[Rfam]
RNA sequence: CCCUCUGAAGUUUCCCCCAGGAUAGCUGGAGUUCGUAUGAUGCAGUUAUAUUCGGUAAAGCGAAUGAUUAGAGGAAUUGGGGACGAAACGACCUCAACCUAUUCUCAAACUUUCAAUGGGUAUGAAGUUCCGCUUGCUUGACAUUAAUGAAGCGUGAACAUUGAAUGUGAGCUCCAAGUGGGCCAUUUUUGGUAAGCAGAACUGGCGCUGUGGGAUGAACCAAACGUCGGGUUAAAGUGCCAAACUUCCCGCUCAUGAGACCCCAUGAAAGGGUUGGUUGAUAUAGACAGCAGGACGGUGGCCAUGGAAGUCGGAAACCGCUAAGGAGUGGGUAACAACUCACCUGCCGAAUCAACUAGCCCUGAAAAUGGAUGGCGCUUGAGCGGGAGACUUAUACCCGACCGUUGCAUGGCUUGUGUGUUUCUUCAUGUCUAAGAGAUUCGCCUCGCCGCAACGAGUAAGAGGGUCACAGUGGUUUGCGUUGAAGGCUUUGGGCGUAGGCCCGGCUGGAGCUUCCACUGGUGCAGAU
Numbered sequence: 001c002c003c004u005c006u007g008a009a010g011u012u013u014c015c016c017c018c019a020g021g022a023u024a025g026c027u028g029g030a031g032u033u034c035g036u037a038u039g040a041u042g043c044a045g046u047u048a049u050a051u052u053c054g055g056u057a058a059a060g061c062g063a064a065u066g067a068u069u070a071g072a073g074g075a076a077u078u079g080g081g082g083a084c085g086a087a088a089c090g091a092c093c094u095c096a097a098c099c100u101a102u103u104c105u106c107a108a109a110c111u112u113u114c115a116a117u118g119g120g121u122a123u124g125a126a127g128u129u130c131c132g133c134u135u136g137c138u139u140g141a142c143a144u145u146a147a148u149g150a151a152g153c154g155u156g157a158a159c160a161u162u163g164a165a166u167g168u169g170a171g172c173u174c175c176a177a178g179u180g181g182g183c184c185a186u187u188u189u190u191g192g193u194a195a196g197c198a199g200a201a202c203u204g205g206c207g208c209u210g211u212g213g214g215a216u217g218a219a220c221c222a223a224a225c226g227u228c229g230g231g232u233u234a235a236a237g238u239g240c241c242a243a244a245c246u247u248c249c250c251g252c253u254c255a256u257g258a259g260a261c262c263c264c265a266u267g268a269a270a271g272g273g274u275u276g277g278u279u280g281a282u283a284u285a286g287a288c289a290g291c292a293g294g295a296c297g298g299u300g301g302c303c304a305u306g307g308a309a310g311u312c313g314g315a316a317a318c319c320g321c322u323a324a325g326g327a328g329u330g331g332g333u334a335a336c337a338a339c340u341c342a343c344c345u346g347c348c349g350a351a352u353c354a355a356c357u358a359g360c361c362c363u364g365a366a367a368a369u370g371g372a373u374g375g376c377g378c379u380u381g382a383g384c385g386g387g388a389g390a391c392u393u394a395u396a397c398c399c400g401a402c403c404g405u406u407g408c409a410u411g412g413c414u415u416g417u418g419u420g421u422u423u424c425u426u427c428a429u430g431u432c433u434a435a436g437a438g439a440u441u442c443g444c445c446u447c448g449c450c451g452c453a454a455c456g457a458g459u460a461a462g463a464g465g466g467u468c469a470c471a472g473u474g475g476u477u478u479g480c481g482u483u484g485a486a487g488g489c490u491u492u493g494g495g496c497g498u499a500g501g502c503c504c505g506g507c508u509g510g511a512g513c514u515u516c517c518a519c520u521g522g523u524g525c526a527g528a529u
Stems, first nucleotide, its partner, number of pairs: 001466006011024001013022003027176007046125008058113001059111002065107003070102001072100003077097006084090001127159004131154005182206004187201005211222003226402005232396001236392003245389001247388001250385003270363013290347005296320003302314002321325001326341001330339001403456006411450003468524001470521006479513002487508002494503003
A member of the RNA family "Eukaryotic large subunit ribosomal RNA" from Parascaris univalens, 529 nucleotides of a longer RNA. NCBI's taxonomy places the organism under Eukaryota, Bilateria, Ascaridoidea, Ascarididae, Parascaris. On this family, see Yusupov et al., Science 2001: "Crystal structure of the ribosome at 5.5 A resolution".